[Rfam]
RNA sequence: CACAAGAUUAACUUCCUGUUAAGAAUGGCGGCGCUAGGGUGACCUUGCGUAAUCCAGUCUUCUGGAUUUCUGAGUGGCUCCUAUCCACUCUGUUUGACGCCUCCCUGUUAGAACUUGAGCCGCGGGCAUCCCCGCGGCUCUUUUUUG
Numbered sequence: 001c002a003c004a005a006g007a008u009u010a011a012c013u014u015c016c017u018g019u020u021a022a023g024a025a026u027g028g029c030g031g032c033g034c035u036a037g038g039g040u041g042a043c044c045u046u047g048c049g050u051a052a053u054c055c056a057g058u059c060u061u062c063u064g065g066a067u068u069u070c071u072g073a074g075u076g077g078c079u080c081c082u083a084u085c086c087a088c089u090c091u092g093u094u095u096g097a098c099g100c101c102u103c104c105c106u107g108u109u110a111g112a113a114c115u116u117g118a119g120c121c122g123c124g125g126g127c128a129u130c131c132c133c134g135c136g137g138c139u140c141u142u143u144u145u146u147g
Stems, first nucleotide, its partner, number of pairs: 001049001003047002005014002015041001021040001053066004072090006096109004117140009
RNA: Alphaproteobacterial sRNA BjrC1505
Organism: Parvibaculum lavamentivorans